The record is a 58-nucleotide sequence from Marinomonas transparens, which matches "Pseudomonas sRNA P26" in Rfam. From the family's description: This small RNA (sRNA) was computationally identified in the genome of the opportunistic pathogen Pseudomonas aeruginosa and its expression verified by northern blot analysis. P26 is conserved across many Gammaproteobacteria species and appears to be consistently located between the DNA directed RNA polymerase (beta subunit) and 50S ribosomal protein L7/L12 genes. On this family, see Livny et al., Nucleic Acids Res 2006: "Identification of 17 Pseudomonas aeruginosa sRNAs and prediction of sRNA-encoding genes in 10 diverse pathogens using the bioinformatic tool sRNAPredict2".
[Rfam]
RNA sequence: GUAUUUCCAGAUUUCGACCAAUAGUCGAAAUGGCUGGUGACAUUAUUGUCACCGGCCU
Numbered sequence: 001g002u003a004u005u006u007c008c009a010g011a012u013u014u015c016g017a018c019c020a021a022u023a024g025u026c027g028a029a030a031u032g033g034c035u036g037g038u039g040a041c042a043u044u045a046u047u048g049u050c051a052c053c054g055g056c057c058u
Base pairs, nucleotide, nucleotide: 014028015027016026017025018024032057033056034055035054036053037052038051039050040049041048